[Rfam]
RNA sequence: CCCUAGCCCUGAUGGGAGGGAAAAUCCUUUUGCUUUUUUCUUUCAAAAAGCAAAAGAUUUGGAAGGAACAGCAGGAAAUAGC
Dot-bracket structure: ........(((.((........((((..((((((((((......)))))))))).)))).........)).)))........
RNA: Flavo-1 RNA
Organism: Flavobacterium geliluteum